mir-146 microRNA precursor family: an 86-nucleotide RNA sequence from Castor canadensis. The match comes from Rfam's covariance-model search (75 bits). On this family, see Cai et al., Proc Natl Acad Sci U S A 2005: "Kaposi's sarcoma-associated herpesvirus expresses an array of viral microRNAs in latently infected cells". Rfam links the family to the GO terms miRNA-mediated post-transcriptional gene silencing and RISC complex.

[Rfam]
RNA sequence: GUGGAUCCUCAGCUUUGAGAACUGAAUUCCAUGGGUCGUGUCAAUGUCAGACCUGUGAACUCAGUUCUUCAGCUGGGAUAUCUCUG
Numbered sequence: 001g002u003g004g005a006u007c008c009u010c011a012g013c014u015u016u017g018a019g020a021a022c023u024g025a026a027u028u029c030c031a032u033g034g035g036u037c038g039u040g041u042c043a044a045u046g047u048c049a050g051a052c053c054u055g056u057g058a059a060c061u062c063a064g065u066u067c068u069u070c071a072g073c074u075g076g077g078a079u080a081u082c083u084c085u086g
Base pairs, nucleotide, nucleotide: 008077009076011074012073013072018068019067020066021065022064023063024062025061033054034053035052036051